Fungal signal recognition particle RNA: a 264-nucleotide RNA sequence from Ramularia collo-cygni. The family's consensus secondary structure is taken from published work. The organism belongs to Ramularia, within Eukaryota. The literature on the family includes a 2002 paper in Nucleic Acids Res by Regalia et al., "Prediction of signal recognition particle RNA genes".
RNA sequence: AGCUGUAAUGGCUCAAUUGGCAGAGCGCGUCCUCCCCAGAGUUCAUUCCUGUCCAAAUCCGGCAACAUGUGCCCAGUUCGAACCCGGUGGUGGUCGUCCACUCGCUUCGGUAACGGGCGAUGCUGGUGCGGCCUUGAGCUUGUGAGGAAUCCUUCAGCCGAGCAAUCGGGCAGAGACCUUCACGCCAUGGGGUGGCGGUAUUGGAUUACACGUGUUGGCGGCGGCGUGAAAUGUGGGGGCUUUGGGAUGCGCGAUGUUUUUUUU
Numbered sequence: 001a002g003c004u005g006u007a008a009u010g011g012c013u014c015a016a017u018u019g020g021c022a023g024a025g026c027g028c029g030u031c032c033u034c035c036c037c038a039g040a041g042u043u044c045a046u047u048c049c050u051g052u053c054c055a056a057a058u059c060c061g062g063c064a065a066c067a068u069g070u071g072c073c074c075a076g077u078u079c080g081a082a083c084c085c086g087g088u089g090g091u092g093g094u095c096g097u098c099c100a101c102u103c104g105c106u107u108c109g110g111u112a113a114c115g116g117g118c119g120a121u122g123c124u125g126g127u128g129c130g131g132c133c134u135u136g137a138g139c140u141u142g143u144g145a146g147g148a149a150u151c152c153u154u155c156a157g158c159c160g161a162g163c164a165a166u167c168g169g170g171c172a173g174a175g176a177c178c179u180u181c182a183c184g185c186c187a188u189g190g191g192g193u194g195g196c197g198g199u200a201u202u203g204g205a206u207u208a209c210a211c212g213u214g215u216u217g218g219c220g221g222c223g224g225c226g227u228g229a230a231a232u233g234u235g236g237g238g239g240c241u242u243u244g245g246g247a248u249g250c251g252c253g254a255u256g257u258u259u260u261u262u263u264u
Stems, first nucleotide, its partner, number of pairs: 001013003015262002019258004025252007033238004037233002042230005048224002059221003063217009073204005078198003082193004087188004092133001094131004098126003102120005108115002134138001141184007152175003159168003